Annotation
Rfam assigns this 65-nucleotide sequence from Patulibacter medicamentivorans to the family "Fluoride riboswitch aptamer (crcB RNA motif)". For this family Rfam cites "Widespread genetic switches and toxicity resistance proteins for fluoride" (Baker et al., Science, 2012).
RNA sequence: CGGCCGCAGAGCGAUGAGGCCCGCUCCACAACCGCGGCGUGACCGCUGAUGGCUUCUACGACCAC
Numbered sequence: 001c002g003g004c005c006g007c008a009g010a011g012c013g014a015u016g017a018g019g020c021c022c023g024c025u026c027c028a029c030a031a032c033c034g035c036g037g038c039g040u041g042a043c044c045g046c047u048g049a050u051g052g053c054u055u056c057u058a059c060g061a062c063c064a065c
Stems, first nucleotide, its partner, number of pairs: 010025004016056006034046004
It scores 36 bits against the family's covariance model. The organism belongs to Patulibacter, within Bacteria.